[Rfam]
RNA sequence: CUCUUUUCCGGUGAUGGUGUUCCACCUUCGGUCUGCUUUCGCGGGCUGAAAACCGCCGGGGUUAAUCCCGGCUGAUGACGCCUGGCAAAAU
Dot-bracket structure: .........[[[[..((((((.]]]]............................(((((((....)))))))....)))))).........
Fluoride riboswitch aptamer (crcB RNA motif): a 91-nucleotide RNA sequence from Enterobacillus tribolii. A search with the family's covariance model found it, with a score of 47 bits. Lineage of the source: Bacteria > Pseudomonadati > Pseudomonadota > Hafniaceae > Enterobacillus.